The family of this 111-nucleotide RNA is "MIR397 microRNA precursor family". Its family is annotated with RISC complex and miRNA-mediated post-transcriptional gene silencing in the Gene Ontology. The family has 7 seed sequences and 496 matches in Rfam 15.1.
RNA sequence: UUAAAAAACCUCAUUGAGUGCAGCGUUGAUGAUAUCUUCGUUCGUUCUUUUCCGAUGGUUUCAUCAUCUACAAAUGUCGUUUCACCAACGCUGCAUUCAAUAAUGCUUUUA
Numbered sequence: 001u002u003a004a005a006a007a008a009c010c011u012c013a014u015u016g017a018g019u020g021c022a023g024c025g026u027u028g029a030u031g032a033u034a035u036c037u038u039c040g041u042u043c044g045u046u047c048u049u050u051u052c053c054g055a056u057g058g059u060u061u062c063a064u065c066a067u068c069u070a071c072a073a074a075u076g077u078c079g080u081u082u083c084a085c086c087a088a089c090g091c092u093g094c095a096u097u098c099a100a101u102a103a104u105g106c107u108u109u110u111a
Base pairs, nucleotide, nucleotide: 006108007107009105011103013101014100015099016098017097018096019095020094021093022092023091024090025089026088027087028086030084031083032082

The match comes from Rfam's covariance-model search (68 bits).